The record is an 87-nucleotide sequence from Cnephaeus nilssonii, which matches "mir-9195 microRNA precursor family" in Rfam. NCBI's taxonomy places the organism under Eukaryota, Bilateria, Mammalia, Eutheria, Cnephaeus.
[Rfam]
RNA sequence: AGAGGCCCUCUGCGGCUGGGGCGGGAUGCUUGCCUCAUCGCUGCAGCGAUGAAACAAGCAUUCCGCCAGGCCACUCACACUGCCUGC
Numbered sequence: 001a002g003a004g005g006c007c008c009u010c011u012g013c014g015g016c017u018g019g020g021g022c023g024g025g026a027u028g029c030u031u032g033c034c035u036c037a038u039c040g041c042u043g044c045a046g047c048g049a050u051g052a053a054a055c056a057a058g059c060a061u062u063c064c065g066c067c068a069g070g071c072c073a074c075u076c077a078c079a080c081u082g083c084c085u086g087c
Stems, first nucleotide, its partner, number of pairs: 004084003012074001014072004020067013037050005